RNA: Selenocysteine transfer RNA
RNA sequence: GGAAACGCAUGCCGAUCCGGUGACGGCCCCGGUCUUCAAAACCGGUGAGACUUCGCGCGAGCGUGGGUCUGGAGGGUUCGACUCCCUUUCGUUUCC
Numbered sequence: 001g002g003a004a005a006c007g008c009a010u011g012c013c014g015a016u017c018c019g020g021u022g023a024c025g026g027c028c029c030c031g032g033u034c035u036u037c038a039a040a041a042c043c044g045g046u047g048a049g050a051c052u053u054c055g056c057g058c059g060a061g062c063g064u065g066g067g068u069c070u071g072g073a074g075g076g077u078u079c080g081a082c083u084c085c086c087u088u089u090c091g092u093u094u095c096c
Base pairs, nucleotide, nucleotide: 001096002095003094004093005092006091007090009088011027012026013025014024016023017022029045030044031043032042033041048070049069050068051067052066073087074086075085076084